[Rfam]
RNA sequence: AUACACUGAUUUUUCACGACCUGUGUCUUCGCGCUCCUCCCUGCUCCGGUAGUGGAGUCGAGUGUGGGGACAGUUCGACGAUAAUGGAGCCACUUUUUCAAUAUGUGUCAAUUUUCCUGUCGACAGGUCGAAGAGCAACACCUUCAAUGGCGCUAUAUCUCGUUGAUCUUUGUAGCUCUUCGUGAGCUCAGUGAUGCUUGAUGGCAAGAUUGUUGGCGGCCGUCUAUUCUGAUCCAAUGCAAGCCGUUUAGGCCAUUAUGCAAGGACGAACCCGGCGCAGCUACAUAU
Numbered sequence: 001a002u003a004c005a006c007u008g009a010u011u012u013u014u015c016a017c018g019a020c021c022u023g024u025g026u027c028u029u030c031g032c033g034c035u036c037c038u039c040c041c042u043g044c045u046c047c048g049g050u051a052g053u054g055g056a057g058u059c060g061a062g063u064g065u066g067g068g069g070a071c072a073g074u075u076c077g078a079c080g081a082u083a084a085u086g087g088a089g090c091c092a093c094u095u096u097u098u099c100a101a102u103a104u105g106u107g108u109c110a111a112u113u114u115u116c117c118u119g120u121c122g123a124c125a126g127g128u129c130g131a132a133g134a135g136c137a138a139c140a141c142c143u144u145c146a147a148u149g150g151c152g153c154u155a156u157a158u159c160u161c162g163u164u165g166a167u168c169u170u171u172g173u174a175g176c177u178c179u180u181c182g183u184g185a186g187c188u189c190a191g192u193g194a195u196g197c198u199u200g201a202u203g204g205c206a207a208g209a210u211u212g213u214u215g216g217c218g219g220c221c222g223u224c225u226a227u228u229c230u231g232a233u234c235c236a237a238u239g240c241a242a243g244c245c246g247u248u249u250a251g252g253c254c255a256u257u258a259u260g261c262a263a264g265g266a267c268g269a270a271c272c273c274g275g276c277g278c279a280g281c282u283a284c285a286u287a288u
Stems, first nucleotide, its partner, number of pairs: 017130008025071004030066002033063004037057004042051003079122005085110003089106002143206001145204001147202002158194002161191001165189002168186003171182002215281001217280001219276004233266003239261003243253003
Shown here is a 288-nucleotide RNA sequence from Venturia inaequalis, a member of the family "A. fumigatus sRNA Afu_309". NCBI's taxonomy places the organism under Eukaryota, Fungi, Ascomycota, Venturiaceae, Venturia. The family's consensus secondary structure was predicted with WAR. For this family Rfam cites "Small ncRNA transcriptome analysis from Aspergillus fumigatus suggests a novel mechanism for regulation of protein synthesis" (Jochl et al., Nucleic Acids Res, 2008).